Streptococcus sRNA SpF59 (ldcC RNA): a 62-nucleotide RNA sequence from Agathobaculum faecis. The source organism's lineage runs through Bacteria, Bacillati, Eubacteriales, Butyricicoccaceae and Agathobaculum.

[Rfam]
RNA sequence: UGACCGCCCCCUUUGUCCCAAAGGGGAGCCAAGGCCAUACGGACAGCCGGGUCAAAUGCCGA
Numbered sequence: 001u002g003a004c005c006g007c008c009c010c011c012u013u014u015g016u017c018c019c020a021a022a023g024g025g026g027a028g029c030c031a032a033g034g035c036c037a038u039a040c041g042g043a044c045a046g047c048c049g050g051g052u053c054a055a056a057u058g059c060c061g062a
Base pairs, nucleotide, nucleotide: 001054002053003052004051005050006029007028009026010025011024012023013022014021
The family's RNA type in Rfam is small RNA.